[Rfam]
RNA sequence: UUACCAGCCAGGCUCCUGGCUAAUUCCAGCUUUUAGCUGGAAUUAUCCAGAAUUAUCCAAAGCCUGGCUGGAAA
Numbered sequence: 001u002u003a004c005c006a007g008c009c010a011g012g013c014u015c016c017u018g019g020c021u022a023a024u025u026c027c028a029g030c031u032u033u034u035a036g037c038u039g040g041a042a043u044u045a046u047c048c049a050g051a052a053u054u055a056u057c058c059a060a061a062g063c064c065u066g067g068c069u070g071g072a073a074a
Stems, first nucleotide, its partner, number of pairs: 007068003011064004017059003021055004026040005